Overview:
mir-2 microRNA precursor family: a 68-nucleotide RNA sequence from Notodromas monacha.

RNA sequence: CUGCUCUCAAAGGGGCUGUCUUAUGUGGAUGCAGGUGGUCAUAUCACAGCCAGCUUUGAUGAGCGGAG
Numbered sequence: 001c002u003g004c005u006c007u008c009a010a011a012g013g014g015g016c017u018g019u020c021u022u023a024u025g026u027g028g029a030u031g032c033a034g035g036u037g038g039u040c041a042u043a044u045c046a047c048a049g050c051c052a053g054c055u056u057u058g059a060u061g062a063g064c065g066g067a068g
Stems, first nucleotide, its partner, number of pairs: 005062002007059006014051006024043003
On this family, see Lee and Ambros, Science 2001: "An extensive class of small RNAs in Caenorhabditis elegans". The family has 56 seed sequences and 918 matches in Rfam 15.1. Lineage of the source: Eukaryota > Protostomia > Pancrustacea > Podocopida > Notodromas.